[Rfam]
RNA sequence: CCCGCAGCUAGACGGAAAGACCCCGUGAACCUUUACUGUAGCUUGGCAUUGGAUCUUGGUGUGGUUUGUGUAGGAUAGGUGGGAGGCUUUGAAGCGGGGGCGCUAGCCCUCGUGGAGCCAUCCUUGAAAUACCACCCUUUCUACUCUGGGCUUCUAACCCGGACCUGUGAAGCCAGGUCGGGGACAAUGUCAGGUGGGCAGUUUGACUGGGGCGGUCGCCUCCUAAAGAGUAACGGAGGCGCCCAAAGGUUCCCUCAGCACGGUCGGCAAUCGUGCGUUGAGUGCAAAGGCAUAAGGGAGCUUAACUGCGAGACCUACAAGUCAAGCAGGUGCGAAAGCAGGGCUUAGUGAUCCGGUGGUCCCGAGUGGAAGGGCCAUCGCUCAACGGAUAAAAGGUACUCCGGGGAUAACAGGCUUAUCUCCCCCAAGAGUCCACAUCGACGGGGAGGUUUGGCACCUCGAUGUCGGCUCAUCGCAUCCUGGGGCUGAAGCAGGUCCCAAGGGUUGGGCUGUUCGCCCAUUAAAGCGGUACGCGAGCUGGGUUUAGAACGUCGUGAGACAGUUCGGUCCCUAUCUGCUGCGGGCGUA
Dot-bracket structure: ((((((((.(((.((......((((.(((((((.((((...(((((((..(((.(((((.((((...(.........(((((..(((......((((((((....))))))))...)))............))))))...)))).))))).)))...(((.((((((......))))))))).....)))))))....))))..((((.....))))((((((...........))))))(.((....((((((((.((((((.......))))))...))((......))....))))))....((((..(((......)))..)))).(((....))).))..........(((((((.((........))))))))).....)......)))))..))))))........(((.((((((((...((.......))...)))))))..))))..........(((((((((((..((.((((((......))))))...)).(((((.....))))).....)))))..)..)))).).....(((((((....))).))))....))..)))))))))))....
Description:
Bacterial large subunit ribosomal RNA: a 588-nucleotide part of an RNA from Methylomirabilis oxygeniifera. The base pairs follow the family's consensus structure, which is taken from published work. Rfam's curators put it in the seed alignment.